Shown here is a 93-nucleotide sequence from Sulfidibacter corallicola, a member of the family "Selenocysteine transfer RNA".
RNA sequence: GGAAGUGGGCGGUGGCUGGUGCCAUCCGCGGUCUUCAAAACCGUGGGUUUCAGAGGUGCUCUGGAACGGUGGGUUCGAUUCCUGCGCACUUCC
Numbered sequence: 001g002g003a004a005g006u007g008g009g010c011g012g013u014g015g016c017u018g019g020u021g022c023c024a025u026c027c028g029c030g031g032u033c034u035u036c037a038a039a040a041c042c043g044u045g046g047g048u049u050u051c052a053g054a055g056g057u058g059c060u061c062u063g064g065a066a067c068g069g070u071g072g073g074u075u076c077g078a079u080u081c082c083u084g085c086g087c088a089c090u091u092c093c
Stems, first nucleotide, its partner, number of pairs: 001093007009085001011026006027045006047067005070084004

A search with the family's covariance model found it, with a score of 72 bits.
The organism belongs to Sulfidibacter, within Bacteria.